Record summary: Rfam assigns this 86-nucleotide sequence from Geotrichum candidum to the family "Small nucleolar RNA R38". Taxonomically the source falls in Geotrichum (Eukaryota, Opisthokonta, Fungi, Dipodascaceae).
RNA sequence: CGUCUACAAUGAUGAAAUUUUUUUUUAUUAAACAGUUAUCCCUGUCUAAAUUGACUUGUGUUGAGAACGUGGUAUCUGAAAAGACG
Numbered sequence: 001c002g003u004c005u006a007c008a009a010u011g012a013u014g015a016a017a018u019u020u021u022u023u024u025u026u027a028u029u030a031a032a033c034a035g036u037u038a039u040c041c042c043u044g045u046c047u048a049a050a051u052u053g054a055c056u057u058g059u060g061u062u063g064a065g066a067a068c069g070u071g072g073u074a075u076c077u078g079a080a081a082a083g084a085c086g
Stems, first nucleotide, its partner, number of pairs: 001086005
Description: Rfam describes the family as follows. snoR38 is a C/D box small nucleolar RNA conserved across yeast, human, Arabidopsis and rice. It is encoded in the intron of elongation factor-1 gamma in both pombe and cerevisiae. snoR38 guides the methylation of 2'-O-ribose sites in 28S rRNA. Gene Ontology terms of the family: nucleolus and RNA processing. The family has 19 seed sequences and 2,295 matches in Rfam 15.1.